[Rfam]
RNA: small Cajal body-specific RNA 18
Organism: Bos taurus
RNA sequence: GGGUUGGCAAUGAUGUGAUCACUGUGCAGUCUGAGUCCUGGGAACCAGGUGUUGGGGUAUGUUCUGAGAGUGAAUUGAGAGUG
Number, nucleotide and partner (000 for none) at each position: 001g000002g082003g000004u080005u079006g000007g000008c000009a000010a000011u000012g000013a000014u000015g000016u000017g000018a000019u000020c000021a000022c000023u000024g000025u000026g000027c000028a000029g000030u000031c000032u000033g000034a000035g000036u000037c000038c048039u047040g046041g045042g000043a000044a000045c041046c040047a039048g038049g000050u000051g000052u000053u000054g000055g000056g000057g000058u000059a000060u000061g000062u000063u000064c000065u000066g000067a000068g000069a000070g000071u000072g000073a000074a000075u000076u000077g000078a000079g005080a004081g000082u002083g000